RNA: Small nucleolar RNA SNORA64/SNORA10 family
RNA sequence: CCUUUCUCAGCUCCAUUGAGUCACACAGGCCCAUUGUGUACAUGGUGUAUUCUAAAAGAAAGAGAGGAAGGCUGUCUUAUGCCCUGAAAACCUGUCCCAAAGUGGACUUUCAGUUGCUAGGAGUUCAAUGGCU
Numbered sequence: 001c002c003u004u005u006c007u008c009a010g011c012u013c014c015a016u017u018g019a020g021u022c023a024c025a026c027a028g029g030c031c032c033a034u035u036g037u038g039u040a041c042a043u044g045g046u047g048u049a050u051u052c053u054a055a056a057a058g059a060a061a062g063a064g065a066g067g068a069a070g071g072c073u074g075u076c077u078u079a080u081g082c083c084c085u086g087a088a089a090a091c092c093u094g095u096c097c098c099a100a101a102g103u104g105g106a107c108u109u110u111c112a113g114u115u116g117c118u119a120g121g122a123g124u125u126c127a128a129u130g131g132c133u
Base pairs, nucleotide, nucleotide: 002066003065004064005063006062007061011058012057019043023039024038025037026036075122076121077120078119081117082116085112086111087110094107095106096105097104